Overview: Rfam assigns this 211-nucleotide RNA from Halalkalibacter hemicellulosilyticus to the family "T-box leader". The organism belongs to Halalkalibacter hemicellulosilyticus, within Bacteria. A reference for the family is Grundy et al. (1994), "Interaction between the acceptor end of tRNA and the T box stimulates antitermination in the Bacillus subtilis tyrS gene: a new role for the discriminator base", J Bacteriol. About the family: Uncharged tRNA acts as the effector for transcription antitermination of genes in the T-box leader family. T-boxes are found upstream of many aminoacyl-tRNA synthetase genes and some amino acid biosynthetic genes usually in Gram-positive bacteria. Pairs were carried over by alignment from the consensus structure, which is taken from published work.
[Rfam]
RNA sequence: AUGAUAGCGUUGAACGGUCUUAGUAAUCCAAACUUCCCUGGAGAUAGAGAGCUGAUGGUUGGUGGGAAUCAGUACAAAAGUCUUGGAUGAAUUACAGCCUGGAGCUUUCUUUGUGAACAAAGAACGGUUUUUGCCGUUAUGAAAAUGAAGUGGCUAUACGUAGCAAAAAGUGUAGCAACAAGGGUGGUAACGCGAGGACCUCGUCCCUUUU
Numbered sequence: 001a002u003g004a005u006a007g008c009g010u011u012g013a014a015c016g017g018u019c020u021u022a023g024u025a026a027u028c029c030a031a032a033c034u035u036c037c038c039u040g041g042a043g044a045u046a047g048a049g050a051g052c053u054g055a056u057g058g059u060u061g062g063u064g065g066g067a068a069u070c071a072g073u074a075c076a077a078a079a080g081u082c083u084u085g086g087a088u089g090a091a092u093u094a095c096a097g098c099c100u101g102g103a104g105c106u107u108u109c110u111u112u113g114u115g116a117a118c119a120a121a122g123a124a125c126g127g128u129u130u131u132u133g134c135c136g137u138u139a140u141g142a143a144a145a146u147g148a149a150g151u152g153g154c155u156a157u158a159c160g161u162a163g164c165a166a167a168a169a170g171u172g173u174a175g176c177a178a179c180a181a182g183g184g185u186g187g188u189a190a191c192g193c194g195a196g197g198a199c200c201u202c203g204u205c206c207c208u209u210u211u
Stems, first nucleotide, its partner, number of pairs: 007105002016099003026088006039076002051073006108123006125136003153176007181208004192204005
Dot-bracket structure: ......((.......(((.......((((((.......((..........((((((...........)))))).))......))))))........)))....))..((((((....)))))).(((......)))................(((((((..........)))))))....((((.......(((((...)))))))))...